[Rfam]
RNA sequence: AUCCCUUGCUCGGCCUUUUGGCUAAAGUCAAGUGUAGUAUCUGUUCUUAUUAGUUUAAUAUCUGAUAUGUUCUUGAUUUGAGGACGCUGUAUUAAACGCAUGUUUGGAACUGGGAGAUGGGAAUAUAGAGCUUGCUCUAUCCACUCUGCGCGUCGAUCGGGUAUGGCAGUAGUUCCAGAAACGGUGUGCUUACU
Numbered sequence: 001a002u003c004c005c006u007u008g009c010u011c012g013g014c015c016u017u018u019u020g021g022c023u024a025a026a027g028u029c030a031a032g033u034g035u036a037g038u039a040u041c042u043g044u045u046c047u048u049a050u051u052a053g054u055u056u057a058a059u060a061u062c063u064g065a066u067a068u069g070u071u072c073u074u075g076a077u078u079u080g081a082g083g084a085c086g087c088u089g090u091a092u093u094a095a096a097c098g099c100a101u102g103u104u105u106g107g108a109a110c111u112g113g114g115a116g117a118u119g120g121g122a123a124u125a126u127a128g129a130g131c132u133u134g135c136u137c138u139a140u141c142c143a144c145u146c147u148g149c150g151c152g153u154c155g156a157u158c159g160g161g162u163a164u165g166g167c168a169g170u171a172g173u174u175c176c177a178g179a180a181a182c183g184g185u186g187u188g189c190u191u192a193c194u
Base pairs, nucleotide, nucleotide: 010025012023013022014021015020048067049066050065051064052063053062069085070084071083072082073081074080075079113147114146115145116144118143119142120141121140127138128137129136130135150187151186152185153184154183155182157179158178160176161175

The family of this 194-nucleotide RNA sequence from Gorilla gorilla is "U2 spliceosomal RNA". Rfam's curators write: U2 is a small nuclear RNA (snRNA) component of the spliceosome (involved in pre-mRNA splicing). Complementary binding between U2 snRNA (in an area lying towards the 5' end but 3' to hairpin I) and the branchpoint sequence (BPS) of the intron results the bulging out of an unpaired adenosine, on the BPS, which initiates a nucleophilic attack at the intronic 5' splice site, thus starting the first of two transesterification reactions that mediate splicing. NCBI's taxonomy places the organism under Eukaryota, Gnathostomata, Eutheria, Primates, Gorilla gorilla. Its Rfam clan is "U2 clan". It is annotated as a spliceosomal small nuclear RNA. The base pairs follow the family's consensus structure, which is taken from published work.